[Rfam]
Nucleotides: 069
Base pairs, nucleotide, nucleotide: 002068003067004066007064009062010060011059012058013057014056015055016054017053018052019051022048023047024046025045026044027043
Number, partner (000 for none) and nucleotide at each position: 001000a002068u003067u004066g005000c006000u007064g008000u009062c010060u011059u012058a013057c014056c015055a016054g017053g018052c019051a020000a021000a022048g023047u024046u025045a026044g027043a028000u029000c030000u031000g032000g033000a034000a035000u036000u037000u038000u039000u040000c041000u042000g043027u044026c045025u046024a047023a048022u049000a050000c051019u052018g053017u054016c055015u056014g057013g058012u059011a060010a061000u062009g063000c064007c065000u066004c067003a068002a069000u